This 81-nucleotide RNA from Clupea harengus belongs to the Rfam family "mir-26 microRNA precursor family".
Rfam links the family to the GO terms miRNA-mediated post-transcriptional gene silencing and RISC complex.
The literature on the family includes a 2001 paper in Science by Lagos-Quintana et al., "Identification of novel genes coding for small expressed RNAs".
The family's consensus secondary structure was predicted with RNAalifold.
The match comes from Rfam's covariance-model search (60 bits).

[Rfam]
RNA sequence: CCUCCUCCUGGAACAAGUAAUCGAGAAUAGGCCGCACUGGUGGAAAACAGCCUAUCCUGGAUUACUUGAACCGGGCCAAGG
Numbered sequence: 001c002c003u004c005c006u007c008c009u010g011g012a013a014c015a016a017g018u019a020a021u022c023g024a025g026a027a028u029a030g031g032c033c034g035c036a037c038u039g040g041u042g043g044a045a046a047a048c049a050g051c052c053u054a055u056c057c058u059g060g061a062u063u064a065c066u067u068g069a070a071c072c073g074g075g076c077c078a079a080g081g
Stems, first nucleotide, its partner, number of pairs: 002080002007075005014068009024058002027055006